The record is a 329-nucleotide sequence from Aspergillus sp. HF37, which matches "A. fumigatus sRNA Afu_309" in Rfam. On this family, see Jochl et al., Nucleic Acids Res 2008: "Small ncRNA transcriptome analysis from Aspergillus fumigatus suggests a novel mechanism for regulation of protein synthesis". The match comes from Rfam's covariance-model search (228 bits). Rfam classes the family as a small RNA.
RNA sequence: CUCUCCAGAACACACCACGGAUCUGUGUCCAGCGGUCCCGUCCACGCCGGCAGUCCGUCUUCGGGCGGCUGCCUUUGUGUUUCGGUUGACUGUUGGACAGCUCGACGACUACGGAGCCAUCAUCAGGGUUGCAUGGUUGUCUAUAUCCUGUCGACAGAUCUCAGAUUGAUUGCCGGCGCCCGAGGUUCGCUCUGGUCUUGAGCUCCCUUCCCUUCGGGGUCGGUGAAUUCGGCUGGAGAGCUUGGUUGUCGGCGGCGUCAUAUUCCUGAUCCCUUUGCCGAGGCCGUUGGCUGGUGAGGUUAGGGAAAAACCAUGACUGGCCAACAUAU
Numbered sequence: 001c002u003c004u005c006c007a008g009a010a011c012a013c014a015c016c017a018c019g020g021a022u023c024u025g026u027g028u029c030c031a032g033c034g035g036u037c038c039c040g041u042c043c044a045c046g047c048c049g050g051c052a053g054u055c056c057g058u059c060u061u062c063g064g065g066c067g068g069c070u071g072c073c074u075u076u077g078u079g080u081u082u083c084g085g086u087u088g089a090c091u092g093u094u095g096g097a098c099a100g101c102u103c104g105a106c107g108a109c110u111a112c113g114g115a116g117c118c119a120u121c122a123u124c125a126g127g128g129u130u131g132c133a134u135g136g137u138u139g140u141c142u143a144u145a146u147c148c149u150g151u152c153g154a155c156a157g158a159u160c161u162c163a164g165a166u167u168g169a170u171u172g173c174c175g176g177c178g179c180c181c182g183a184g185g186u187u188c189g190c191u192c193u194g195g196u197c198u199u200g201a202g203c204u205c206c207c208u209u210c211c212c213u214u215c216g217g218g219g220u221c222g223g224u225g226a227a228u229u230c231g232g233c234u235g236g237a238g239a240g241c242u243u244g245g246u247u248g249u250c251g252g253c254g255g256c257g258u259c260a261u262a263u264u265c266c267u268g269a270u271c272c273c274u275u276u277g278c279c280g281a282g283g284c285c286g287u288u289g290g291c292u293g294g295u296g297a298g299g300u301u302a303g304g305g306a307a308a309a310a311c312c313a314u315g316a317c318u319g320g321c322c323a324a325c326a327u328a329u
Base pairs, nucleotide, nucleotide: 019161020160021159022158023157024156025155026154027098028097029096030095031094032093034091035090036089037088038085039084040083043079044078045077046076049073050072052070053069054068056067057066058065059064106153107152108151109150113141114140116137117136118135172249173248178246179245181244182243183242184241194234195233196232197231200230201229202228204226205225206223207222254322255321256320257317258316259315260314261313270306271305272304273303274302277300278299279298282292283291284290285289